[Rfam]
RNA sequence: UACUGGCGAGUCUUGGCACUGGAAGAAUUCACAGAUGUUUAUUAUUUAAUCGUGGAUCUUGCAAUGCCAUCACUUGCUGGUU
Numbered sequence: 001u002a003c004u005g006g007c008g009a010g011u012c013u014u015g016g017c018a019c020u021g022g023a024a025g026a027a028u029u030c031a032c033a034g035a036u037g038u039u040u041a042u043u044a045u046u047u048a049a050u051c052g053u054g055g056a057u058c059u060u061g062c063a064a065u066g067c068c069a070u071c072a073c074u075u076g077c078u079g080g081u082u
Stems, first nucleotide, its partner, number of pairs: 003080008014069005020063002023059001025058002029055004034050001
Dot-bracket structure: ..((((((((...(((((.((.(.((..((((.(...............).)))).)))..)).)))))...))))))))..

Rfam assigns this 82-nucleotide RNA sequence from Aphidius gifuensis to the family "mir-263 microRNA precursor family". Rfam links the family to the GO terms miRNA-mediated post-transcriptional gene silencing and RISC complex. Rfam 15.1 lists 368 matches to the family in 211 species. Taxonomically the source falls in Aphidius (Eukaryota, Eumetabola, Apocrita, Aphidiinae). The literature on the family includes a 2009 paper in BMC Genomics by Li et al., "Direct sequencing and expression analysis of a large number of miRNAs in Aedes aegypti and a multi-species survey of novel mosquito miRNAs". Its Rfam clan is "mir-182 clan".